[Rfam]
RNA sequence: CAACGUAAUCAUGCGUUUUAUGCUGAGCGUAAUACCCACAGCGUAGCGGCUAGAACCCGCAGACUUAUUCAUAAGGAAACAAACAAAUG
Numbered sequence: 001c002a003a004c005g006u007a008a009u010c011a012u013g014c015g016u017u018u019u020a021u022g023c024u025g026a027g028c029g030u031a032a033u034a035c036c037c038a039c040a041g042c043g044u045a046g047c048g049g050c051u052a053g054a055a056c057c058c059g060c061a062g063a064c065u066u067a068u069u070c071a072u073a074a075g076g077a078a079a080c081a082a083a084c085a086a087a088u089g
Stems, first nucleotide, its partner, number of pairs: 002017005019045007046060004

The family of this 89-nucleotide RNA sequence is "freshwater-2 RNA". Rfam classes the family as a cis-regulatory element.